[Rfam]
RNA sequence: GCCGGGUGCAGUGGCGUGCGCCAGUAAUCCAAGCUACUGGGAGGCUGAGGCUAGCAGACUGUUUGAGCUCAGGGGUUGUGGGCUGUAGCGUACUAUGCCAUUCGGGUGUCCGCACUAAGUUCGGUAUCCAUAUGGUGCUCCUAAGCUUGGGCCCACCAGGUCGUCUAAGGAGGGUUGAAACAGAGCAGGUCAAAGCCCCUGUGCAGAUAAGUAGUGGGAUCGCGCCUGUGAGUAGAUGUUGCAGUGCAACCUGGAUGAUACAGCGGUACUCAGUCUCUU
Numbered sequence: 001g002c003c004g005g006g007u008g009c010a011g012u013g014g015c016g017u018g019c020g021c022c023a024g025u026a027a028u029c030c031a032a033g034c035u036a037c038u039g040g041g042a043g044g045c046u047g048a049g050g051c052u053a054g055c056a057g058a059c060u061g062u063u064u065g066a067g068c069u070c071a072g073g074g075g076u077u078g079u080g081g082g083c084u085g086u087a088g089c090g091u092a093c094u095a096u097g098c099c100a101u102u103c104g105g106g107u108g109u110c111c112g113c114a115c116u117a118a119g120u121u122c123g124g125u126a127u128c129c130a131u132a133u134g135g136u137g138c139u140c141c142u143a144a145g146c147u148u149g150g151g152c153c154c155a156c157c158a159g160g161u162c163g164u165c166u167a168a169g170g171a172g173g174g175u176u177g178a179a180a181c182a183g184a185g186c187a188g189g190u191c192a193a194a195g196c197c198c199c200u201g202u203g204c205a206g207a208u209a210a211g212u213a214g215u216g217g218g219a220u221c222g223c224g225c226c227u228g229u230g231a232g233u234a235g236a237u238g239u240u241g242c243a244g245u246g247c248a249a250c251c252u253g254g255a256u257g258a259u260a261c262a263g264c265g266g267u268a269c270u271c272a273g274u275c276u277c278u279u
Base pairs, nucleotide, nucleotide: 001045002044003043005022006021007020008019009018010017028042029041030040047277048276049275050274051273052272054270058267059266060265061264062263063262067256069254070253071252072251073250079248080247082245083244084243085242086241087240088239089238090237093235094234095233096232098230103228104227105226106225107224108223109222110218111217113216114215115214116213117212121207122206124204125203126202127201128163130161131160133158134157135156136155137154140151141150142149143148164170165169171200172199173198174197176195

Description
The record is a 279-nucleotide RNA from Electrophorus electricus, which matches "Metazoan signal recognition particle RNA" in Rfam. The family is grouped with related families in Rfam's "SRP clan". NCBI's taxonomy places the organism under Eukaryota, Craniata, Actinopterygii, Otomorpha, Electrophorus. It is annotated as a non-coding RNA gene. The base pairs follow the family's consensus structure, which is taken from published work. A reference for the family is Wild et al. (2002), "Towards the structure of the mammalian signal recognition particle", Curr Opin Struct Biol.